The family of this 71-nucleotide RNA sequence from Tetraodon nigroviridis is "mir-19 microRNA precursor family".
RNA sequence: UCGUUUGGUCAGUUUUGCUGGUUUGCAUUCAGCUUUGUUGCUGUGCUGUGCAAAUCCAUGCAAAACUGACU
Numbered sequence: 001u002c003g004u005u006u007g008g009u010c011a012g013u014u015u016u017g018c019u020g021g022u023u024u025g026c027a028u029u030c031a032g033c034u035u036u037g038u039u040g041c042u043g044u045g046c047u048g049u050g051c052a053a054a055u056c057c058a059u060g061c062a063a064a065a066c067u068g069a070c071u
Stems, first nucleotide, its partner, number of pairs: 007071012020057002022054007031047003

Its Rfam clan is "mir-19 clan". Rfam 15.1 lists 2,337 matches to the family in 651 species. Rfam links the family to the GO terms RISC complex and miRNA-mediated post-transcriptional gene silencing. Rfam's curators put it in the seed alignment.